[Rfam]
RNA sequence: GCAACUACAUAUAGCAGGGUGGCGGCUGAACCCCUAAGGAAGGGGGUGAAGCUUGUGACGACAUUUGAAGCAUUUAGUCUUUUAGCUCAAUUUGGCUUAUUACUAAUAGCAGCUUUUACAUUUAUCAUUACCAUUGUCGUCUAUCUAAACAAAAAGAAAUAGCCACCCUGACCGACCAGUAGGGGGCUAUUUCUGCAAUCCUAUCACGGUUAGCCGCUAAUCUGCGGCAUGUUGUUGCUAAGACCGGGUGUUAGCGCACUCGGU
Numbered sequence: 001g002c003a004a005c006u007a008c009a010u011a012u013a014g015c016a017g018g019g020u021g022g023c024g025g026c027u028g029a030a031c032c033c034c035u036a037a038g039g040a041a042g043g044g045g046g047u048g049a050a051g052c053u054u055g056u057g058a059c060g061a062c063a064u065u066u067g068a069a070g071c072a073u074u075u076a077g078u079c080u081u082u083u084a085g086c087u088c089a090a091u092u093u094g095g096c097u098u099a100u101u102a103c104u105a106a107u108a109g110c111a112g113c114u115u116u117u118a119c120a121u122u123u124a125u126c127a128u129u130a131c132c133a134u135u136g137u138c139g140u141c142u143a144u145c146u147a148a149a150c151a152a153a154a155a156g157a158a159a160u161a162g163c164c165a166c167c168c169u170g171a172c173c174g175a176c177c178a179g180u181a182g183g184g185g186g187c188u189a190u191u192u193c194u195g196c197a198a199u200c201c202u203a204u205c206a207c208g209g210u211u212a213g214c215c216g217c218u219a220a221u222c223u224g225c226g227g228c229a230u231g232u233u234g235u236u237g238c239u240a241a242g243a244c245c246g247g248g249u250g251u252u253a254g255c256g257c258a259c260u261c262g263g264u
Stems, first nucleotide, its partner, number of pairs: 001238005007232003012212003015170008027049001029047001031046005057141007072083001093133003180203003213228004243264009

A member of the RNA family "BsrG" from Anaerobacillus alkaliphilus, 264 nucleotides long. By type it is a small RNA. A search with the family's covariance model found it, with a score of 64 bits. The literature on the family includes a 2010 paper in Nucleic Acids Res by Irnov et al., "Identification of regulatory RNAs in Bacillus subtilis".